[Rfam]
Nucleotides: 070
Base pairs, nucleotide, nucleotide: 002069003068004067008026009025010024011023
Number, partner (000 for none) and nucleotide at each position: 001000c002069u003068g004067c005000c006000g007000u008026g009025a010024u011023g012000g013000u014000g015000a016000c017000a018000u019000u020000u021000u022000u023011c024010g025009u026008c027000a028000a029000c030000a031000g032000g033000a034000c035000c036000g037000c038000c039000c040000c041000g042000a043000g044000c045000g046000c047000g048000u049000g050000g051000u052000g053000a054000c055000a056000c057000c058000u059000u060000g061000g062000g063000c064000u065000g066000a067004g068003c069002a070000g